[Rfam]
mir-1175 microRNA precursor family: a 72-nucleotide RNA from Trichogramma brassicae. The family's consensus secondary structure was predicted with RNAalifold. NCBI's taxonomy places the organism under Eukaryota, Mandibulata, Altocrustacea, Chalcidoidea, Trichogramma. Gene Ontology terms of the family: RISC complex and miRNA-mediated post-transcriptional gene silencing.
RNA sequence: AGGUUUAAGUGGAGUAGUGGUCUCUACGCUUAGAUUUUAAAAAGUGAGAUUCAACUCCUCCUACUUAUUCCG
Numbered sequence: 001a002g003g004u005u006u007a008a009g010u011g012g013a014g015u016a017g018u019g020g021u022c023u024c025u026a027c028g029c030u031u032a033g034a035u036u037u038u039a040a041a042a043a044g045u046g047a048g049a050u051u052c053a054a055c056u057c058c059u060c061c062u063a064c065u066u067a068u069u070c071c072g
Stems, first nucleotide, its partner, number of pairs: 007066003011061004017056001018054001023049002027046005